[Rfam]
RNA sequence: UAUCUCCCCCAGCAGGGAAGAUACCAUGAUCACAGAGGUGGUUUUCCCAGGGUGAGGCUUAUCCAUUGCCCUCCAGAUGUGCUGACCCCUACAAUUUGAGCCCUGCAAGUUCCUCAAAUGUGGGAAGCUCAACUGCAUAAUUUGUAGUCGUGGGGGACUGCGUCCGUGCUCUCCCAUG
Numbered sequence: 001u002a003u004c005u006c007c008c009c010c011a012g013c014a015g016g017g018a019a020g021a022u023a024c025c026a027u028g029a030u031c032a033c034a035g036a037g038g039u040g041g042u043u044u045u046c047c048c049a050g051g052g053u054g055a056g057g058c059u060u061a062u063c064c065a066u067u068g069c070c071c072u073c074c075a076g077a078u079g080u081g082c083u084g085a086c087c088c089c090u091a092c093a094a095u096u097u098g099a100g101c102c103c104u105g106c107a108a109g110u111u112c113c114u115c116a117a118a119u120g121u122g123g124g125a126a127g128c129u130c131a132a133c134u135g136c137a138u139a140a141u142u143u144g145u146a147g148u149c150g151u152g153g154g155g156g157a158c159u160g161c162g163u164c165c166g167u168g169c170u171c172u173c174c175c176a177u178g
Stems, first nucleotide, its partner, number of pairs: 012136004016048002019045003023042005049090004054086001056083003060079004094129001095127001096125002152177001154175004160169003